[Rfam]
RNA sequence: AUGUACGUCAGUAUAUGGGGAUGUUUCCCACACAUUCAACGGCGUGUUUACAGGAAAAACGAAAGGGGAGAUAAAAUCCCCCUUUUUGGCUAACU
Numbered sequence: 001a002u003g004u005a006c007g008u009c010a011g012u013a014u015a016u017g018g019g020g021a022u023g024u025u026u027c028c029c030a031c032a033c034a035u036u037c038a039a040c041g042g043c044g045u046g047u048u049u050a051c052a053g054g055a056a057a058a059a060c061g062a063a064a065g066g067g068g069a070g071a072u073a074a075a076a077u078c079c080c081c082c083u084u085u086u087u088g089g090c091u092a093a094c095u
Stems, first nucleotide, its partner, number of pairs: 008038001010036003016032002019029002062086007070078003

sraA: a 95-nucleotide sequence from Salmonella enterica.